[Rfam]
Nucleotides: 139
Stems, first nucleotide, its partner, number of pairs: 004061006019048005025042006075132005090117005098109002
Number, partner (000 for none) and nucleotide at each position: 001000u002000a003000u004061u005060g006059c007058c008057a009056u010000a011000u012000g013000g014000u015000a016000u017000c018000u019048g020047a021046u022045g023044c024000u025042c026041a027040g028039u029038c030037a031000a032000a033000u034000u035000u036000g037030u038029g039028a040027u041026u042025g043000u044023g045022u046021g047020u048019c049000u050000c051000g052000a053000a054000a055000c056009a057008u058007g059006g060005c061004a062000c063000a064000a065000a066000a067000g068000a069000a070000u071000u072000g073000g074000g075132a076131a077130c078129g079128g080000a081000u082000c083000u084000u085000g086000c087000g088000a089000c090117a091116c092115u093114g094113g095000u096000c097000a098109u099108u100000c101000a102000u103000u104000u105000u106000u107000g108099a109098g110000g111000u112000u113094c114093c115092a116091g117090u118000u119000a120000c121000u122000a123000u124000a125000u126000c127000c128079c129078c130077g131076u132075u133000u134000a135000c136000a137000u138000u139000g

Shown here is a 139-nucleotide sequence from Eragrostis curvula, a member of the family "Small nucleolar RNA F1/F2/snoR5a". Its family is annotated with nucleolus and RNA processing in the Gene Ontology. It is annotated as an H/ACA-box small nucleolar RNA. The family's consensus secondary structure was predicted with PFOLD.